[Rfam]
RNA sequence: AAUUCAGAUUGGGUAAUUGCUGUCUUAGGAUUUAAGAUGGAGGAAAGUCCGAACUCCAUAGAACAGGGUGCCGGGUAACGCCCGGGGUUCUGCUUCAUUAGAAGCGGGAUACGGAAAGUGCCACAGAAAAGAUACCGCCCGCCUCAAAAAAAGGCGGGUAAGGGUGAAAAGGCAGGGUAAAAGCCUACCGCUCCUGUAGUAAUACAGGAGGCAGGGUAAACCCCACCCGGAGCAAGAUCAAAUAGGGAAAGCUUUCCACGCGCUCGUAUAUGUGGUGUGUGGGACAGGGUUGUUCGCUUUGAAUGCUUUCCGGGUAGAUCGCUUGAAUAGCGGAGCAAUUCGUUAUCCAGAUAAAUAAUUACCACCUGCCCCACAUAAGGCGGGUACAAAAUUCGGCUUAUAGAUUUGGAUUACUC
Numbered sequence: 001a002a003u004u005c006a007g008a009u010u011g012g013g014u015a016a017u018u019g020c021u022g023u024c025u026u027a028g029g030a031u032u033u034a035a036g037a038u039g040g041a042g043g044a045a046a047g048u049c050c051g052a053a054c055u056c057c058a059u060a061g062a063a064c065a066g067g068g069u070g071c072c073g074g075g076u077a078a079c080g081c082c083c084g085g086g087g088u089u090c091u092g093c094u095u096c097a098u099u100a101g102a103a104g105c106g107g108g109a110u111a112c113g114g115a116a117a118g119u120g121c122c123a124c125a126g127a128a129a130a131g132a133u134a135c136c137g138c139c140c141g142c143c144u145c146a147a148a149a150a151a152a153g154g155c156g157g158g159u160a161a162g163g164g165u166g167a168a169a170a171g172g173c174a175g176g177g178u179a180a181a182a183g184c185c186u187a188c189c190g191c192u193c194c195u196g197u198a199g200u201a202a203u204a205c206a207g208g209a210g211g212c213a214g215g216g217u218a219a220a221c222c223c224c225a226c227c228c229g230g231a232g233c234a235a236g237a238u239c240a241a242a243u244a245g246g247g248a249a250a251g252c253u254u255u256c257c258a259c260g261c262g263c264u265c266g267u268a269u270a271u272g273u274g275g276u277g278u279g280u281g282g283g284a285c286a287g288g289g290u291u292g293u294u295c296g297c298u299u300u301g302a303a304u305g306c307u308u309u310c311c312g313g314g315u316a317g318a319u320c321g322c323u324u325g326a327a328u329a330g331c332g333g334a335g336c337a338a339u340u341c342g343u344u345a346u347c348c349a350g351a352u353a354a355a356u357a358a359u360u361a362c363c364a365c366c367u368g369c370c371c372c373a374c375a376u377a378a379g380g381c382g383g384g385u386a387c388a389a390a391a392u393u394c395g396g397c398u399u400a401u402a403g404a405u406u407u408g409g410a411u412u413a414c415u416c
Stems, first nucleotide, its partner, number of pairs: 001412010011401001012363007020040009045399003049396005054232004061300003066228005071085005086112001087110010113223002118221002120217003135163002137159008171189002174186003190212001191210008236320004246311006291305005327346008
A member of the RNA family "Bacterial RNase P class A" from an Ignavibacteria bacterium, 416 nucleotides long. Lineage of the source: Bacteria > Pseudomonadati > Ignavibacteriota > Ignavibacteria.